Description
Rfam assigns this 74-nucleotide RNA from Trichonephila inaurata to the family "Small nucleolar RNA SNORD34". Clan: SNORD34 clan. The match comes from Rfam's covariance-model search (43 bits).
RNA sequence: CUUAUCAAUGAUGUUUGACAUUACUUACCUACAUUGUAUGAGAACCCAUGAUUUCACAAAAAUCUGAGAUAUAG
Numbered sequence: 001c002u003u004a005u006c007a008a009u010g011a012u013g014u015u016u017g018a019c020a021u022u023a024c025u026u027a028c029c030u031a032c033a034u035u036g037u038a039u040g041a042g043a044a045c046c047c048a049u050g051a052u053u054u055c056a057c058a059a060a061a062a063u064c065u066g067a068g069a070u071a072u073a074g
Base pairs, nucleotide, nucleotide: 001074002073003071004070005069006068
Lineage of the source: Eukaryota > Araneoidea > Nephilidae > Trichonephila > Trichonephila inaurata. The family's consensus secondary structure was predicted with PFOLD. The family's RNA type in Rfam is C/D-box small nucleolar RNA. About the family: snoRNA U34 is found in intron 5 of the ribosomal protein L13a gene in humans. On this family, see Galardi et al., Mol Cell Biol 2002: "Purified box C/D snoRNPs are able to reproduce site-specific 2'-O-methylation of target RNA in vitro".